[Rfam]
RNA: Eukaryotic small subunit ribosomal RNA, nucleotides 1822 to 1991
RNA sequence: CACCGCCCGUCGCUACUACCGAUUGAAUUAUUUAGUGAGGUCUCCGGACGUGAUCACUGUGACGCCUUGUGUGUUACGGUUGUUUCGCAAAAGUUGACCGAACUUGAUUAUUUAGAGGAAGUAAAAGUCGUAACAAGGUUUCCGUAGGUGAACCUGCGGAAGGAUCAUUA
Number, nucleotide and partner (000 for none) at each position: 001c000002a000003c137004c000005g134006c000007c000008c130009g129010u000011c127012g000013c000014u123015a122016c121017u120018a000019c118020c117021g000022a000023u114024u000025g113026a112027a111028u110029u000030a108031u107032u106033u000034a104035g103036u102037g000038a000039g099040g098041u097042c096043u000044c000045c093046g000047g000048a000049c000050g088051u087052g086053a085054u000055c000056a080057c079058u078059g077060u076061g000062a074063c073064g072065c071066c000067u000068u000069g000070u000071g065072u064073g063074u062075u000076a060077c059078g058079g057080u056081u000082g000083u000084u000085u053086c052087g051088c050089a000090a000091a000092a000093g045094u000095u000096g042097a041098c040099c039100g000101a000102a036103c035104u034105u000106g032107a031108u030109u000110a028111u027112u026113u025114a023115g000116a000117g020118g019119a000120a017121g016122u015123a014124a000125a000126a000127g011128u000129c009130g008131u000132a000133a000134c005135a000136a000137g003138g000139u162140u161141u160142c159143c158144g157145u156146a155147g154148g153149u000150g000151a000152a000153c148154c147155u146156g145157c144158g143159g142160a141161a140162g139163g000164a000165u000166c000167a000168u000169u000170a000